[Rfam]
RNA: mir-191 microRNA precursor family
Organism: Sphenodon punctatus
RNA sequence: AGUGUGACAGCGGGCAACGGAAUCCCAAAAGCAGCUGUUUCCUCCUAGCAGCUCAGCUGCCCUUGGAUUUCGUUCCCUGCUUUCUCACCC
Numbered sequence: 001a002g003u004g005u006g007a008c009a010g011c012g013g014g015c016a017a018c019g020g021a022a023u024c025c026c027a028a029a030a031g032c033a034g035c036u037g038u039u040u041c042c043u044c045c046u047a048g049c050a051g052c053u054c055a056g057c058u059g060c061c062c063u064u065g066g067a068u069u070u071c072g073u074u075c076c077c078u079g080c081u082u083u084c085u086c087a088c089c090c
Base pairs, nucleotide, nucleotide: 009081010080011079012078013077017073018072019071020070021069022068023067024066025065027064028063031060032059033058034057035056036055037054